[Rfam]
RNA: mir-342 microRNA precursor family
Organism: Rousettus aegyptiacus
RNA sequence: GACCCCGGGCGCAAGGCGAGGGGUGCUAUCUGUGAUUGAGGGACAUGGCAAACAGAACUGUCUCACACAGAAAUCGCACCCGUCCCCUUGGCCCGCCUC
Numbered sequence: 001g002a003c004c005c006c007g008g009g010c011g012c013a014a015g016g017c018g019a020g021g022g023g024u025g026c027u028a029u030c031u032g033u034g035a036u037u038g039a040g041g042g043a044c045a046u047g048g049c050a051a052a053c054a055g056a057a058c059u060g061u062c063u064c065a066c067a068c069a070g071a072a073a074u075c076g077c078a079c080c081c082g083u084c085c086c087c088u089u090g091g092c093c094c095g096c097c098u099c
Stems, first nucleotide, its partner, number of pairs: 012090005018084002021081006029071006037065005